[Rfam]
RNA sequence: GGGUGCUGCACAUCCCAAGUCAGCAGGUUCAGCGAAGGUCGGGCCGCCUCG
Numbered sequence: 001g002g003g004u005g006c007u008g009c010a011c012a013u014c015c016c017a018a019g020u021c022a023g024c025a026g027g028u029u030c031a032g033c034g035a036a037g038g039u040c041g042g043g044c045c046g047c048c049u050c051g
Stems, first nucleotide, its partner, number of pairs: 005024004010020002033051003037048003
nhaA-I RNA: a 51-nucleotide sequence from Caenimonas aquaedulcis. The match comes from Rfam's covariance-model search (44 bits). Rfam describes the family as follows. Acidobacteria, Alphaproteobacteria, Betaproteobacteria and Gammaproteobacteria, Verrucomicrobia, cand. division NC10. Rfam classes the family as a riboswitch. The source organism's lineage runs through Bacteria, Pseudomonadati, Betaproteobacteria, Comamonadaceae and Caenimonas. The family's consensus secondary structure is taken from published work.